tRNA: an 80-nucleotide RNA sequence from Kocuria palustris.
The source organism's lineage runs through Bacteria, Bacillati, Actinomycetota, Kocuria and Kocuria palustris.
By type it is a transfer RNA.
Pairs were carried over by alignment from the consensus structure, which is taken from published work.
[Rfam]
RNA sequence: GCCCAAGUGGCGGAAUCGGCAGACGCGCCGCACUCAAAAUGCGGUUCUUCGGAGUGUGGGUUCGAGUCCCACCUUGGGCA
Number, nucleotide and partner (000 for none) at each position: 001g079002c078003c077004c076005a075006a074007g073008u000009g000010g026011c025012g024013g000014a000015a000016u000017c000018g000019g000020c000021a000022g000023a000024c012025g011026c010027g000028c044029c043030g042031c041032a040033c000034u000035c000036a000037a000038a000039a000040u032041g031042c030043g029044g028045u000046u000047c000048u000049u000050c000051g000052g000053a000054g000055u000056g072057u071058g070059g069060g068061u000062u000063c000064g000065a000066g000067u000068c060069c059070c058071a057072c056073c007074u006075u005076g004077g003078g002079c001080a000